Record summary:
The family of this 96-nucleotide RNA from Yoonia sediminilitoris is "Glycine riboswitch aptamer". A search with the family's covariance model found it, with a score of 61 bits.
[Rfam]
RNA sequence: GUGCAACACGCCGAAGAGUGGCCUUCGAUGGCCCGCCGAAGGAGCAAACCGCAGACAUGCGGCGAAUCUCUCAGGCCCAAUGACGGCGGGGGCAGC
Numbered sequence: 001g002u003g004c005a006a007c008a009c010g011c012c013g014a015a016g017a018g019u020g021g022c023c024u025u026c027g028a029u030g031g032c033c034c035g036c037c038g039a040a041g042g043a044g045c046a047a048a049c050c051g052c053a054g055a056c057a058u059g060c061g062g063c064g065a066a067u068c069u070c071u072c073a074g075g076c077c078c079a080a081u082g083a084c085g086g087c088g089g090g091g092g093c094a095g096c
Stems, first nucleotide, its partner, number of pairs: 007090001009088005020033004035076003038072002042070003049062005